Rfam assigns this 93-nucleotide RNA to the family "mir-1467 microRNA precursor family". The family's consensus secondary structure was predicted with RNAalifold.
RNA sequence: CAGGGCAGGUUUUUUUCUCAGCUACAUCGGUGUAAAUCCAGAGCAACUCCACUGAGAUUCACACCAGAGUAACUGAGAGCAGAAUCUGGCCAA
Numbered sequence: 001c002a003g004g005g006c007a008g009g010u011u012u013u014u015u016u017c018u019c020a021g022c023u024a025c026a027u028c029g030g031u032g033u034a035a036a037u038c039c040a041g042a043g044c045a046a047c048u049c050c051a052c053u054g055a056g057a058u059u060c061a062c063a064c065c066a067g068a069g070u071a072a073c074u075g076a077g078a079g080c081a082g083a084a085u086c087u088g089g090c091c092a093a
Stems, first nucleotide, its partner, number of pairs: 003091002006088008015079007023071003027068002029065005035059004039054003